The family of this 170-nucleotide sequence from Garciella nitratireducens is "glmS glucosamine-6-phosphate activated ribozyme aptamer". The family's RNA type in Rfam is riboswitch. This entry contains a glucosamine-6-phosphate activated ribozyme that is found in the mRNA for GlmS. GlmS is an enzyme that uses fructose-6-phosphate and glutamine to generate glucosamine-6-phosphate. The ribozyme catalyses self cleavage of the glmS mRNA that is thought to regulate GlmS activity. It scores 123 bits against the family's covariance model. The family's consensus secondary structure is taken from published work. Taxonomically the source falls in Garciella nitratireducens (Bacteria, Bacillati, Eubacteriaceae, Garciella).

[Rfam]
RNA sequence: CUUAUAAGAAAAGCGCCAGAACUUAAAUUGGGAUGGAAAAUACAAUUUAAGUUGACGAGGGCAGGGUUUAUCGAGGAUUCGGCGGAUACCCUGCGGUGUUGUCAUCACCGAGAAAAAUCUUACAAACCCUUUAAGCGAUUAAAGGAACAAAAAAGAUUUUAAUGACAAAA
Numbered sequence: 001c002u003u004a005u006a007a008g009a010a011a012a013g014c015g016c017c018a019g020a021a022c023u024u025a026a027a028u029u030g031g032g033a034u035g036g037a038a039a040a041u042a043c044a045a046u047u048u049a050a051g052u053u054g055a056c057g058a059g060g061g062c063a064g065g066g067u068u069u070a071u072c073g074a075g076g077a078u079u080c081g082g083c084g085g086a087u088a089c090c091c092u093g094c095g096g097u098g099u100u101g102u103c104a105u106c107a108c109c110g111a112g113a114a115a116a117a118u119c120u121u122a123c124a125a126a127c128c129c130u131u132u133a134a135g136c137g138a139u140u141a142a143a144g145g146a147a148c149a150a151a152a153a154a155g156a157u158u159u160u161a162a163u164g165a166c167a168a169a170a
Stems, first nucleotide, its partner, number of pairs: 020053008029044001062093005071082004094110005114160007128145007